[Rfam]
RNA sequence: GUCGUAUAAAGAUGUAUUAGAUGCAAGACAAUCUAGCAUUUCCCUUUACGGCAUUAUAAUACUAUUUAGAAGUUCAAACAACAAUAAUUGUUGCAUGGUUAAUAAUCGAAACGAUUUGAGUUUGAACUGAGUAGGUUAGCCGUAUGACCUUGUGUUGAAAAACACUAAAAACAAUCUUAAAAUGACAUUUCUUAAUUUUCGUUAUUUUGAGUUACGGUGGU
Numbered sequence: 001g002u003c004g005u006a007u008a009a010a011g012a013u014g015u016a017u018u019a020g021a022u023g024c025a026a027g028a029c030a031a032u033c034u035a036g037c038a039u040u041u042c043c044c045u046u047u048a049c050g051g052c053a054u055u056a057u058a059a060u061a062c063u064a065u066u067u068a069g070a071a072g073u074u075c076a077a078a079c080a081a082c083a084a085u086a087a088u089u090g091u092u093g094c095a096u097g098g099u100u101a102a103u104a105a106u107c108g109a110a111a112c113g114a115u116u117u118g119a120g121u122u123u124g125a126a127c128u129g130a131g132u133a134g135g136u137u138a139g140c141c142g143u144a145u146g147a148c149c150u151u152g153u154g155u156u157g158a159a160a161a162a163c164a165c166u167a168a169a170a171a172c173a174a175u176c177u178u179a180a181a182a183u184g185a186c187a188u189u190u191c192u193u194a195a196u197u198u199u200c201g202u203u204a205u206u207u208u209g210a211g212u213u214a215c216g217g218u219g220g221u
Base pairs, nucleotide, nucleotide: 001052002051003050004049005048006047008045010041011040012039013038014037015036018035019034020033021032022031023029072127073126074125075124076123077122078121079120086116087115088114089113090112091111092110097107098106100104133150134149135148136147137146139218140217141216142215143214144213145171152165153164154163155162156161176211177210178209179208180207181206182205183204184203185202186201
Rfam assigns this 221-nucleotide RNA to the family "IS605-orfB-I RNA". It is one of the family's seed sequences. The base pairs follow the family's consensus structure, which is taken from published work.